[Rfam]
This 266-nucleotide RNA sequence from Lentibacillus sp. JNUCC-1 belongs to the Rfam family "Bacterial large signal recognition particle RNA". About the family: The signal recognition particle (SRP) is a universally conserved ribonucleoprotein involved in the co-translational targeting of proteins to membranes. It scores 228 bits against the family's covariance model. On this family, see Rosenblad et al., Nucleic Acids Res 2003: "SRPDB: Signal Recognition Particle Database". The organism belongs to Lentibacillus, within Bacteria.
RNA sequence: UCGUGCUAGGCGGGGAGGUAGCGGUGCCCUGUACUUGCAAUCCGCUAUAGCAAGGCUGAAUUCCCACUUGAGGUGCGGCGGCUUUAUGGCCUGCCCCAGUGGAGUGGUGCUGACGUUCAGGUCCUGCGCAACAGAAACCCAUGAACCCUGUCAGGUCCGGAAGGAAGCAGCAGUAAGUGGUCUCUUCUGUGUGCCGCGGGAGUGCCUGGACCGAGCCACGAAGCUGGGUAACGCAUAGGGCCGUCGCAUCGACAGUGGGUGCACGG
Numbered sequence: 001u002c003g004u005g006c007u008a009g010g011c012g013g014g015g016a017g018g019u020a021g022c023g024g025u026g027c028c029c030u031g032u033a034c035u036u037g038c039a040a041u042c043c044g045c046u047a048u049a050g051c052a053a054g055g056c057u058g059a060a061u062u063c064c065c066a067c068u069u070g071a072g073g074u075g076c077g078g079c080g081g082c083u084u085u086a087u088g089g090c091c092u093g094c095c096c097c098a099g100u101g102g103a104g105u106g107g108u109g110c111u112g113a114c115g116u117u118c119a120g121g122u123c124c125u126g127c128g129c130a131a132c133a134g135a136a137a138c139c140c141a142u143g144a145a146c147c148c149u150g151u152c153a154g155g156u157c158c159g160g161a162a163g164g165a166a167g168c169a170g171c172a173g174u175a176a177g178u179g180g181u182c183u184c185u186u187c188u189g190u191g192u193g194c195c196g197c198g199g200g201a202g203u204g205c206c207u208g209g210a211c212c213g214a215g216c217c218a219c220g221a222a223g224c225u226g227g228g229u230a231a232c233g234c235a236u237a238g239g240g241c242c243g244u245c246g247c248a249u250c251g252a253c254a255g256u257g258g259g260u261g262c263a264c265g266g
Stems, first nucleotide, its partner, number of pairs: 001266006009057003012030004017025001019023001034054005063259006072250005079243010092233002095228006104219001106217003115211008123200006129191002132189005139180004148173004156165003